[Rfam]
RNA sequence: UUCGAGAAAACCGAAAAUCGAAAGAGUAGGAA
Numbered sequence: 001u002u003c004g005a006g007a008a009a010a011c012c013g014a015a016a017a018u019c020g021a022a023a024g025a026g027u028a029g030g031a032a
Stems, first nucleotide, its partner, number of pairs: 003020003011030002

Shown here is a 32-nucleotide sequence from Flavobacterium aurantiibacter, a member of the family "DUF805b RNA". Rfam classes the family as a cis-regulatory element. Lineage of the source: Bacteria > Pseudomonadati > Bacteroidota > Flavobacteriales > Flavobacterium. Its Rfam clan is "DUF805 clan".